Annotation:
A member of the RNA family "Small nucleolar RNA SNORA74" from Leptobrachium leishanense, 198 nucleotides long. Rfam's curators write: U19 belongs to the H/ACA class of snoRNAs. snoRNAs bind a number of proteins (including dyskerin, Gar1p and Nop10p in the case of the H/ACA class) to form snoRNP complexes. This class are thought to guide the sites of modification of uridines to pseudouridines by forming direct base pairing interactions with substrate RNAs. Targets may include ribosomal and spliceosomal RNAs but the exact functions of many snoRNAs, including U19, are not confirmed. Co-precipitation of U19 snoRNA with RNase MRP RNA suggests that U19 may be involved in pre-rRNA processing. Gene Ontology terms of the family: RNA processing and nucleolus. It scores 89 bits against the family's covariance model. Lineage of the source: Eukaryota > Deuterostomia > Gnathostomata > Teleostomi > Leptobrachium.
[Rfam]
RNA sequence: CCCAGUGGUUAGUCAGCUAUCCAGUGCCUGUGAUAGUGUUACAUUGCUGGGAGAACAAGACAAUGCACCCAAUGCUGGUGUCCCACUGUUACUGUUCUGGUGACGUGUAGCACAUGCAACUAGGCAUUGUUGUACUUCCUCACGAGUGCGCCAAACAUCUACCAUGUUUGUUUUGGAGCUAGUCUGGAAGCACACAGA
Numbered sequence: 001c002c003c004a005g006u007g008g009u010u011a012g013u014c015a016g017c018u019a020u021c022c023a024g025u026g027c028c029u030g031u032g033a034u035a036g037u038g039u040u041a042c043a044u045u046g047c048u049g050g051g052a053g054a055a056c057a058a059g060a061c062a063a064u065g066c067a068c069c070c071a072a073u074g075c076u077g078g079u080g081u082c083c084c085a086c087u088g089u090u091a092c093u094g095u096u097c098u099g100g101u102g103a104c105g106u107g108u109a110g111c112a113c114a115u116g117c118a119a120c121u122a123g124g125c126a127u128u129g130u131u132g133u134a135c136u137u138c139c140u141c142a143c144g145a146g147u148g149c150g151c152c153a154a155a156c157a158u159c160u161a162c163c164a165u166g167u168u169u170g171u172u173u174u175g176g177a178g179c180u181a182g183u184c185u186g187g188a189a190g191c192a193c194a195c196a197g198a
Stems, first nucleotide, its partner, number of pairs: 001051009012042002016037006022030003060130007074120001076118002082110001086105001090102004132193002135190005148179002152175004156170002